Source information
The family of this 108-nucleotide RNA sequence from Neomesorhizobium albiziae is "ZMP/ZTP riboswitch aptamer (pfl RNA motif)". The family's consensus secondary structure is taken from published work. The source organism's lineage runs through Bacteria, Alphaproteobacteria, Hyphomicrobiales, Phyllobacteriaceae and Neomesorhizobium.
[Rfam]
RNA sequence: CGCCGUUCGCGUGACUGGCGAGGGGGCGGGGCUGAAGCCGCCGCCCCAAGAUGGAAAUCCAUCGGGGAGCGCGAACGUUAUUCGAUGCCGCGCGCCUGGGCACCUCUC
Numbered sequence: 001c002g003c004c005g006u007u008c009g010c011g012u013g014a015c016u017g018g019c020g021a022g023g024g025g026g027c028g029g030g031g032c033u034g035a036a037g038c039c040g041c042c043g044c045c046c047c048a049a050g051a052u053g054g055a056a057a058u059c060c061a062u063c064g065g066g067g068a069g070c071g072c073g074a075a076c077g078u079u080a081u082u083c084g085a086u087g088c089c090g091c092g093c094g095c096c097u098g099g100g101c102a103c104c105u106c107u108c
Base pairs, nucleotide, nucleotide: 004077005076006075007074008073009072010071011070012069015066016065017096018095019094020093051062052061053060054059086102087101088100089099
Gene Ontology terms of the family: one-carbon metabolic process and regulation of purine nucleotide biosynthetic process. A reference for the family is Jones and Ferre-D'Amare (2015), "Recognition of the bacterial alarmone ZMP through long-distance association of two RNA subdomains", Nat Struct Mol Biol.